[Rfam]
RNA sequence: UGAUAGCCCAGAUAGUAGUGAAAAUCCUUUUGUUUUUUUCUUUAAAAAACAAAAGAUUGUAACGGAUAGCUGGAAAUAGC
Number, nucleotide and partner (000 for none) at each position: 001u000002g000003a000004u000005a000006g000007c000008c000009c072010a071011g070012a000013u068014a067015g000016u000017a000018g063019u062020g000021a000022a000023a058024a057025u056026c055027c000028u000029u053030u052031u051032g050033u049034u048035u047036u046037u045038u044039u000040c000041u000042u000043u000044a038045a037046a036047a035048a034049a033050c032051a031052a030053a029054a000055g026056a025057u024058u023059g000060u000061a000062a019063c018064g000065g000066a000067u014068a013069g000070c011071u010072g009073g000074a000075a000076a000077u000078a000079g000080c000

The record is an 80-nucleotide RNA from Flavobacterium psychrophilum, which matches "Flavo-1 RNA" in Rfam.
Rfam classes the family as a small RNA.
Taxonomically the source falls in Flavobacterium psychrophilum (Bacteria, Pseudomonadati, Bacteroidota, Flavobacterium).